[Rfam]
Nucleotides: 083
Stems, first nucleotide, its partner, number of pairs: 004080004009075002013071003017067002020064003023060001025059002029057006
Number, partner (000 for none) and nucleotide at each position: 001000c002000a003000a004080g005079c006078a007077c008000a009075g010074g011000c012000a013071a014070u015069g016000g017067c018066a019000c020064u021063g022062g023060a024000a025059g026058a027000a028000u029057u030056c031055a032054c033053g034052g035000g036000u037000u038000c039000a040000g041000u042000u043000u044000a045000u046000a047000u048000a049000u050000u051000c052034c053033c054032g055031u056030g057029a058026u059025c060023u061000c062022u063021u064020a065000g066018u067017g068000g069015c070014a071013u072000c073000a074010c075009u076000g077007g078006u079005g080004c081000a082000g083000g